[Rfam]
RNA sequence: GGCUGGUCCGAAAGUAGUGGGUUAUCCUCAUUUACAUGUUACUCUAGCUUGCAGUUAACUUUCCCACUACUAUCAUUGACUAGCUAUUU
Numbered sequence: 001g002g003c004u005g006g007u008c009c010g011a012a013a014g015u016a017g018u019g020g021g022u023u024a025u026c027c028u029c030a031u032u033u034a035c036a037u038g039u040u041a042c043u044c045u046a047g048c049u050u051g052c053a054g055u056u057a058a059c060u061u062u063c064c065c066a067c068u069a070c071u072a073u074c075a076u077u078g079a080c081u082a083g084c085u086a087u088u089u
Stems, first nucleotide, its partner, number of pairs: 001085008010077002014073002016068006026051001030050001